[Rfam]
RNA: Archaeal large subunit ribosomal RNA, nucleotides 2133 to 2714
RNA sequence: CUUUCAGCGGGAAGAUAAGACCCCGUGGAGCUUUUCGGCAGUCUAUUGUUGUGACACGGUUCUAGCUGUGUAGUGUAGGUGGAAGCCAUCGAAGUCUACUCGUUAGGGUAGAUGGAGGCGUCAAUGAAACACCACUCUGCUAUAACUGUGCCACUAACCCAAUUCGUUGGGGACAUCAGUAGAUGGGCCGUUUGGCUGGGGCGGCACCCUCCUGAAAAAACAUCAGGAGGGCCCAAAGGUCAGCUCAUCCGCGUCAGAACUGCGGAGAAGAGUGCAAGAGCAAAAGCUGGCUUGAUAUGAUUCUGCAACGCAAGGAAUCGUGACUCGAAAGAGAGGUCUAGCGAACCCCAAGCAAACCUAUCGUUAGGGGCUUGGGCUAUCAGAAAAGCUACCCCGGGGAUAACUGGCUGGUUUCAGGCAAGAGCUCGUAUCGACCCUGAAUCUUGGUACUUCGAUGUCGGCUCAGUCCAUCCUGGGAGUGCAGCAGCUCCCAAGGGUACGGGUGUUCACCGGUUAAAGGGCUUCGUGAGCUGGGUUUAGAACGUCGCGAGACAGUUUGGCAUAUAUCUGCUGGAAGUGUUC
Dot-bracket structure: ((((((((.(((..(......((((.(((((((..(((...(((((((..(((.(((((((.((((.(.........(((((..(((.........(((((....)))))......)))............)))))).)))).))))))).)))...((((......)))).....)))))))....)))...((((.....))).)((((((...........))))))..((....((((((((.((((((.......))))))...))((......))....))))))....(((((((((.........))))))))).(.(....).).))..........(((((.....(((.......)))..))))).........)))))..))))))........(((.(.((((((...((.......))...))))))...))))..........(((((((((((..((..(((((......)))))....))..(((.......)))......)))))..)..)))).).....(((((((....))).))))....)...))))))))))).....